Rfam assigns this 72-nucleotide RNA sequence from Qipengyuania oceanensis to the family "terC RNA". The family's consensus secondary structure is taken from published work.
RNA sequence: CUUGCGGACCGGGCCCCUCUGGCGCGUCGCAUCGGCCUGAAGGCGAUGCAUGCGUGAUGUCGGACCGCAUCG
Numbered sequence: 001c002u003u004g005c006g007g008a009c010c011g012g013g014c015c016c017c018u019c020u021g022g023c024g025c026g027u028c029g030c031a032u033c034g035g036c037c038u039g040a041a042g043g044c045g046a047u048g049c050a051u052g053c054g055u056g057a058u059g060u061c062g063g064a065c066c067g068c069a070u071c072g
Stems, first nucleotide, its partner, number of pairs: 006066002009063004022055006